[Rfam]
This 55-nucleotide RNA sequence from Pseudanabaenaceae cyanobacterium LEGE 13415 belongs to the Rfam family "Nitrogen stress-induced RNA 1".
The base pairs follow the family's consensus structure.

RNA sequence: UGGUAGAUGCACCCUGAUUAUUUGCCUCGGUCAAAUUCUGACCGAGGUUUUUUAU
Numbered sequence: 001u002g003g004u005a006g007a008u009g010c011a012c013c014c015u016g017a018u019u020a021u022u023u024g025c026c027u028c029g030g031u032c033a034a035a036u037u038c039u040g041a042c043c044g045a046g047g048u049u050u051u052u053u054a055u
Base pairs, nucleotide, nucleotide: 002013003012004011025047026046027045028044029043030042031041032040033039

It scores 53 bits against the family's covariance model.